[Rfam]
This 213-nucleotide RNA sequence from Pelotomaculum isophthalicicum belongs to the Rfam family "T-box leader". For this family Rfam cites "Interaction between the acceptor end of tRNA and the T box stimulates antitermination in the Bacillus subtilis tyrS gene: a new role for the discriminator base" (Grundy et al., J Bacteriol, 1994). Uncharged tRNA acts as the effector for transcription antitermination of genes in the T-box leader family. The match comes from Rfam's covariance-model search (110 bits).
RNA sequence: AAACAGGUGUUGAAAAGGAAGAGUAGACCUGUCUUGGCCAUCAGAGAGAAAGUGUCAUCGGCUGCAAGCACUUUUGGGUACUAUGGGUUGAAAACCACCUUGGAACCGCCGGCUGAAAUCACCAGUAAGCCGCGCCGGAGGCAGCCGUUAACUGUCGUAAAAGAAAGUAUAUACCCUUAAUCAGGGUGGAAACGGGAAUAUCCCGUCCCUGAC
Numbered sequence: 001a002a003a004c005a006g007g008u009g010u011u012g013a014a015a016a017g018g019a020a021g022a023g024u025a026g027a028c029c030u031g032u033c034u035u036g037g038c039c040a041u042c043a044g045a046g047a048g049a050a051a052g053u054g055u056c057a058u059c060g061g062c063u064g065c066a067a068g069c070a071c072u073u074u075u076g077g078g079u080a081c082u083a084u085g086g087g088u089u090g091a092a093a094a095c096c097a098c099c100u101u102g103g104a105a106c107c108g109c110c111g112g113c114u115g116a117a118a119u120c121a122c123c124a125g126u127a128a129g130c131c132g133c134g135c136c137g138g139a140g141g142c143a144g145c146c147g148u149u150a151a152c153u154g155u156c157g158u159a160a161a162a163g164a165a166a167g168u169a170u171a172u173a174c175c176c177u178u179a180a181u182c183a184g185g186g187u188g189g190a191a192a193c194g195g196g197a198a199u200a201u202c203c204c205g206u207c208c209c210u211g212a213c
Stems, first nucleotide, its partner, number of pairs: 007106002015101004026089006038077002048075008110132005136147003164178002167175001183210004192206005